[Rfam]
RNA sequence: CUGCCCCCUGUGAGCUUCCCUUUGUCAUCCUAUGCCUGAGCGAUGUCUGGAGGCUGGGACGCUGAAGGGAGGCCCACGGGGGCUGCCA
Numbered sequence: 001c002u003g004c005c006c007c008c009u010g011u012g013a014g015c016u017u018c019c020c021u022u023u024g025u026c027a028u029c030c031u032a033u034g035c036c037u038g039a040g041c042g043a044u045g046u047c048u049g050g051a052g053g054c055u056g057g058g059a060c061g062c063u064g065a066a067g068g069g070a071g072g073c074c075c076a077c078g079g080g081g082g083c084u085g086c087c088a
Stems, first nucleotide, its partner, number of pairs: 017070006024063001028059005034054004
Record summary
A member of the RNA family "mir-204 microRNA precursor family" from Rostratula benghalensis, 88 nucleotides long. The organism belongs to Rostratula, within Eukaryota. Rfam 15.1 lists 1,730 matches to the family in 644 species. Pairs were carried over by alignment from the consensus structure, which was predicted with RNAalifold. A search with the family's covariance model found it, with a score of 56 bits. On this family, see Chen et al., Genes Dev 2005: "The developmental miRNA profiles of zebrafish as determined by small RNA cloning".